[Rfam]
A member of the RNA family "M-box riboswitch aptamer (ykoK leader)" from Enterococcus casseliflavus, 176 nucleotides long. Lineage of the source: Bacteria > Bacillati > Bacillota > Bacilli > Enterococcus casseliflavus.
RNA sequence: AUAUAACCUUGUUAGGUGAGGCUCCUAUACAAACACAAGCUAUUGCGCAGAAACGUCGAAAGACGCCAAUGUGUAAAACAGGAAUUGUCGGAUUAAGGCUUUUCAUAAAAUAGCUAAGAGAGCAAAUGACUUUCUUUACGUUGUAUAGUGCUAAAACUCGGACGAUGAGAUUGCUG
Numbered sequence: 001a002u003a004u005a006a007c008c009u010u011g012u013u014a015g016g017u018g019a020g021g022c023u024c025c026u027a028u029a030c031a032a033a034c035a036c037a038a039g040c041u042a043u044u045g046c047g048c049a050g051a052a053a054c055g056u057c058g059a060a061a062g063a064c065g066c067c068a069a070u071g072u073g074u075a076a077a078a079c080a081g082g083a084a085u086u087g088u089c090g091g092a093u094u095a096a097g098g099c100u101u102u103u104c105a106u107a108a109a110a111u112a113g114c115u116a117a118g119a120g121a122g123c124a125a126a127u128g129a130c131u132u133u134c135u136u137u138a139c140g141u142u143g144u145a146u147a148g149u150g151c152u153a154a155a156a157c158u159c160g161g162a163c164g165a166u167g168a169g170a171u172u173g174c175u176g
Base pairs, nucleotide, nucleotide: 005172006171008169009168010167011163012162013096015158016157017156020152021151022150025148026147027146028145029144030143031142032141039114040113041112042111043110045074046073047072048071049070054065055064056063057062082104083103084102087099088098089097116136117135118134119133120132121131122130
Rfam's curators put it in the seed alignment.